Notes:
RNase E 5' UTR element: a 338-nucleotide sequence from Budvicia aquatica. The base pairs follow the family's consensus structure, which is taken from published work. Rfam describes the family as follows. This family represents a conserved element found in the 5' UTR of RNase E mRNA. RNase E is a key regulatory enzyme in the pathway of mRNA degradation in E. coli that is able to auto-regulate the degradation of its own mRNA in response to changes in RNase E activity. This rne 5' UTR element acts as a sensor of cellular RNase E concentration enabling tight regulation of RNase E concentration and synthesis. The match comes from Rfam's covariance-model search (225 bits). The source organism's lineage runs through Bacteria, Pseudomonadati, Gammaproteobacteria, Budviciaceae and Budvicia. For this family Rfam cites "An evolutionarily conserved RNA stem-loop functions as a sensor that directs feedback regulation of RNase E gene expression" (Diwa et al., Genes Dev, 2000).
RNA sequence: UUUCUGCCUUGAACCCGCCUAAUGCGUGGUAACAGGCAAAAAAUAAAAUUUGCAGAUCGCUCAGUCAGUGCAGCAAUGGCGUAAGACACCAUGAGAUAUCAAGCAAUUAGCGAGCUACGGGUAGUGGCUUGGAUGGUAAAAGGAACCCGAUCUCUAUCUAACUUUAGCGACGGACUUUCCCUGAUAAAAAGUGCUGUUUUCACAAAGAAAUACAGACUUACCGAGAUAAUGCGUCCCUGUGCAAACGACAACCGUGAGGUUGACGAUUUUGCGAUAAGACUCGGGGCCAUCGGUCAACUCCGUCCAUGAGUAUCCUUACACGUAGACUCAAUUGACAA
Number, nucleotide and partner (000 for none) at each position: 001u000002u000003u040004c000005u038006g037007c036008c035009u000010u000011g000012a000013a000014c000015c029016c028017g027018c026019c000020u000021a000022a000023u000024g000025c000026g018027u017028g016029g015030u000031a000032a000033c000034a000035g008036g007037c006038a005039a000040a003041a000042a000043a000044u000045a000046a000047a000048a000049u000050u106051u105052g104053c103054a000055g100056a099057u000058c000059g000060c095061u094062c093063a092064g000065u000066c000067a000068g089069u088070g087071c000072a000073g080074c079075a000076a000077u000078g000079g074080c073081g000082u000083a000084a000085g000086a000087c070088a069089c068090c000091a000092u063093g062094a061095g060096a000097u000098a000099u056100c055101a000102a000103g053104c052105a051106a050107u000108u000109a000110g000111c000112g329113a328114g327115c325116u324117a323118c322119g321120g000121g319122u318123a000124g000125u000126g000127g000128c000129u000130u306131g305132g304133a303134u302135g301136g300137u000138a000139a000140a000141a000142g180143g179144a178145a177146c000147c000148c000149g000150a000151u170152c169153u000154c167155u166156a000157u000158c000159u000160a000161a000162c000163u000164u000165u000166a155167g154168c000169g152170a151171c000172g000173g000174a000175c000176u000177u145178u144179c143180c142181c000182u000183g000184a000185u000186a000187a000188a000189a000190a218191g217192u216193g000194c215195u214196g213197u212198u210199u209200u208201c207202a000203c000204a000205a000206a000207g201208a200209a199210a198211u000212a197213c196214a195215g194216a192217c191218u190219u000220a294221c293222c292223g291224a290225g000226a000227u000228a000229a000230u000231g000232c000233g287234u286235c285236c284237c283238u000239g000240u000241g000242c000243a000244a000245a000246c265247g264248a000249c262250a261251a260252c259253c258254g000255u000256g000257a000258g253259g252260u251261u250262g249263a000264c247265g246266a000267u000268u000269u000270u000271g000272c000273g000274a000275u000276a000277a000278g000279a000280c000281u000282c000283g237284g236285g235286g234287c233288c000289a000290u224291c223292g222293g221294u220295c000296a000297a000298c000299u000300c136301c135302g134303u133304c132305c131306a130307u000308g000309a000310g000311u000312a000313u000314c000315c000316u000317u000318a122319c121320a000321c119322g118323u117324a116325g115326a000327c114328u113329c112330a000331a000332u000333u000334g000335a000336c000337a000338a000